The family of this 75-nucleotide RNA from Cellulomonas cellasea is "c-di-GMP-I-GGC riboswitch aptamer". The base pairs follow the family's consensus structure, which is taken from published work. NCBI's taxonomy places the organism under Bacteria, Bacillati, Micrococcales, Cellulomonas, Cellulomonas cellasea.
RNA sequence: GACGACAAAGGCAAACCCGUCGCGAGGCGGGGACGCAAAGCCAUGGGACCCCCGCGGUCAGCCAGGCCACCGAAC
Numbered sequence: 001g002a003c004g005a006c007a008a009a010g011g012c013a014a015a016c017c018c019g020u021c022g023c024g025a026g027g028c029g030g031g032g033a034c035g036c037a038a039a040g041c042c043a044u045g046g047g048a049c050c051c052c053c054g055c056g057g058u059c060a061g062c063c064a065g066g067c068c069a070c071c072g073a074a075c
Base pairs, nucleotide, nucleotide: 001075003072004071011036012035016031017030018029019028020027021026034061040067041066042065044064045063046062047059048058049057